Shown here is a 133-nucleotide RNA sequence from Molossus molossus, a member of the family "U11 spliceosomal RNA". It is annotated as a spliceosomal small nuclear RNA. Lineage of the source: Eukaryota > Euteleostomi > Mammalia > Laurasiatheria > Molossus. A search with the family's covariance model found it, with a score of 107 bits.
[Rfam]
RNA sequence: UAAAAGGGUUUCUGUCGUGAGUGGCACACGUAGAGCAGCUUGAUUGCUCCACGUGCAGAAUCGACAUCGAGAGAUUUCGGGAGCAUAAUUUUUUGGUCCUUGGCAGCUGGUGAUUGUUGGUCCUGGCGCCCUC
Numbered sequence: 001u002a003a004a005a006g007g008g009u010u011u012c013u014g015u016c017g018u019g020a021g022u023g024g025c026a027c028a029c030g031u032a033g034a035g036c037a038g039c040u041u042g043a044u045u046g047c048u049c050c051a052c053g054u055g056c057a058g059a060a061u062c063g064a065c066a067u068c069g070a071g072a073g074a075u076u077u078c079g080g081g082a083g084c085a086u087a088a089u090u091u092u093u094u095g096g097u098c099c100u101u102g103g104c105a106g107c108u109g110g111u112g113a114u115u116g117u118u119g120g121u122c123c124u125g126g127c128g129c130c131c132u133c
Stems, first nucleotide, its partner, number of pairs: 008084005013026005027055005033049006056079001058077005102130003106127005112122004